RNA sequence: AUUGAGCCUAGCCUGACGGGGCGAAAAGCGGAAAGCCUUACCGCCUGGCUCAAUCUACUAUUUAAGGU
Numbered sequence: 001a002u003u004g005a006g007c008c009u010a011g012c013c014u015g016a017c018g019g020g021g022c023g024a025a026a027a028g029c030g031g032a033a034a035g036c037c038u039u040a041c042c043g044c045c046u047g048g049c050u051c052a053a054u055c056u057a058c059u060a061u062u063u064a065a066g067g068u
Base pairs, nucleotide, nucleotide: 001054002053003052004051005050006049007048008047011022012021013020014019028044029043030042031041035068036067037066038065039064040063

A member of the RNA family "int-alpA RNA" from Yersinia pseudotuberculosis, 68 nucleotides long. Acidobacteria (1 example), Planctomycetes (1 example), Proteobacteria. The family has 167 seed sequences and 577 matches in Rfam 15.1.